[Rfam]
RNA sequence: CGAAAAGCAAAGAUGAGGACAAGUAAUUUUGGGUACAGGGAUCUACAGAGAGCCGGUGGUGCUGAAAGCCGGCGAUGCCAGCCCGGAAUGAACUCACCUCGGAGCGCCGGUUUGAAAGCCAGUCCAGUAAAGCCGGCCGGGUGUUUGGCACCCGUUACCAAAACGGGCAGUGGGCACACUGUCCAAAAGUGCACGCGAAACAUGCGUGAAUAAGGGUGGUACCGUGGAAUAGGUGAACAAAGCCUUUUCAUCCCUUGC
Number, nucleotide and partner (000 for none) at each position: 001c000002g000003a000004a000005a000006a000007g105008c104009a000010a000011a000012g000013a000014u000015g100016a099017g098018g097019a000020c000021a000022a000023g000024u000025a000026a089027u088028u087029u086030u085031g084032g000033g000034u000035a000036c000037a000038g000039g000040g000041a076042u075043c074044u000045a000046c000047a000048g000049a000050g000051a000052g073053c072054c071055g070056g069057u068058g000059g000060u000061g000062c000063u000064g000065a000066a000067a000068g057069c056070c055071g054072g053073c052074g043075a042076u041077g000078c000079c000080a000081g000082c000083c000084c031085g030086g029087a028088a027089u026090g000091a000092a000093c000094u000095c000096a000097c018098c017099u016100c015101g000102g000103a000104g008105c007106g000107c136108c135109g134110g133111u132112u131113u130114g000115a000116a000117a000118g000119c000120c000121a000122g000123u000124c000125c000126a000127g000128u000129a000130a113131a112132g111133c110134c109135g108136g107137c000138c154139g153140g152141g151142u150143g000144u000145u000146u000147g000148g000149c000150a142151c141152c140153c139154g138155u000156u000157a000158c000159c000160a000161a000162a000163a000164c000165g000166g000167g000168c000169a000170g000171u000172g000173g000174g000175c000176a000177c000178a000179c000180u000181g000182u000183c000184c000185a000186a000187a000188a000189g000190u000191g000192c208193a207194c206195g205196c204197g203198a000199a000200a000201c000202a000203u197204g196205c195206g194207u193208g192209a000210a000211u000212a000213a255214g254215g253216g252217u000218g000219g000220u000221a000222c000223c000224g251225u250226g249227g248228a247229a000230u000231a000232g000233g000234u000235g000236a000237a000238c000239a000240a000241a000242g000243c000244c000245u000246u000247u228248u227249c226250a225251u224252c216253c215254c214255u213256u000257g000258c000